RNA sequence: AGCAAUGGUCAACAGCUGCUUUUAUUUGUAAAAGUAGAGGAAAGUCCACGCUAGCACAACCUGAGAUGGUUGUAGUAUUCAUGUCGAGUCUAAUAAACUCGAGCUUAGACGACUAGUGCCACAGAGACGAGAAAUGUGAAACGGGUAAACUCCAUGAGCUAGAAACCUAAAUUUUUCGGUAAGGGAACUUUUCGAGAAGAAUUCAAUUUAAGAAAAGAGCCAAACUUUUGUUUGGUUAGAUAAAUUGUUGACACCAGCAAUGGGACAAAACGUGGCUUAUAGUU
Dot-bracket structure: ...(((((((((((.((((((..........))))))....[[[.[[[[[(((((((((((......)))))).....(((((((((((.......))))))((...).)((...(((((.......................)))..))))))))))))))...(((.............)))...((((((..................))))))((((((((....))))))))........))))))).(((....))).......]]]]]]]].).)))
The family of this 284-nucleotide sequence from Mycoplasmopsis columbinasalis is "Bacterial RNase P class B". The match comes from Rfam's covariance-model search (202 bits). Ribonuclease P (RNase P) is a ubiquitous endoribonuclease, found in archaea, bacteria and eukarya as well as chloroplasts and mitochondria. It is annotated as a ribozyme.